The record is an 87-nucleotide sequence from Brassica napus, which matches "small nucleolar RNA snoR114" in Rfam.
Lineage of the source: Eukaryota > Viridiplantae > Mesangiospermae > rosids > Brassica.
The match comes from Rfam's covariance-model search (52 bits).
Gene Ontology terms of the family: nucleolus and RNA processing.
A reference for the family is Chen and Wu (2009), "Mining small RNA sequencing data: a new approach to identify small nucleolar RNAs in Arabidopsis", Nucleic Acids Res.
[Rfam]
RNA sequence: GAGCUGUGAUGAUUAUUGGUUUAAAUGAUGGUUGGGUCCAUCGCAUUCUUCUGAAAACUCGGAUGUCAUUGCCAUGUUGCAGAGCUC
Numbered sequence: 001g002a003g004c005u006g007u008g009a010u011g012a013u014u015a016u017u018g019g020u021u022u023a024a025a026u027g028a029u030g031g032u033u034g035g036g037u038c039c040a041u042c043g044c045a046u047u048c049u050u051c052u053g054a055a056a057a058c059u060c061g062g063a064u065g066u067c068a069u070u071g072c073c074a075u076g077u078u079g080c081a082g083a084g085c086u087c
Stems, first nucleotide, its partner, number of pairs: 001087004